[Rfam]
RNA: UnaL2 LINE 3' element
RNA sequence: UGUAUACAUCCGUGUAAGUCGCAUUGGAUAAAAGCGUCUGCUAAAUGACUAAAU
Numbered sequence: 001u002g003u004a005u006a007c008a009u010c011c012g013u014g015u016a017a018g019u020c021g022c023a024u025u026g027g028a029u030a031a032a033a034g035c036g037u038c039u040g041c042u043a044a045a046u047g048a049c050u051a052a053a054u
Stems, first nucleotide, its partner, number of pairs: 013043001014041003020036003024032002